[Rfam]
RNA: Group II catalytic intron D1-D4-2
Organism: Bradyrhizobium diazoefficiens
RNA sequence: GGGAGUUUGGCCUCCCGGAGCCGGCCUUCAGGGGCAGGCUUCAAACCACCUCAUGCUGCCGCGUUCAAAAGGCGCGGUGGUGAGCGAUGAGGAAAAAGGCGGUGAAUGAAACCGUCAGGU
Dot-bracket structure: (((((......)))))((((((.((((....)))).))))))....(.((((((((.(((.((((.....)))).))).)).....)))))).....((((((.......))))))..).
Numbered sequence: 001g002g003g004a005g006u007u008u009g010g011c012c013u014c015c016c017g018g019a020g021c022c023g024g025c026c027u028u029c030a031g032g033g034g035c036a037g038g039c040u041u042c043a044a045a046c047c048a049c050c051u052c053a054u055g056c057u058g059c060c061g062c063g064u065u066c067a068a069a070a071g072g073c074g075c076g077g078u079g080g081u082g083a084g085c086g087a088u089g090a091g092g093a094a095a096a097a098g099g100c101g102g103u104g105a106a107u108g109a110a111a112c113c114g115u116c117a118g119g120u
Stems, first nucleotide, its partner, number of pairs: 001016005017042006024035004047119001049092006055081002058078003062074004098116006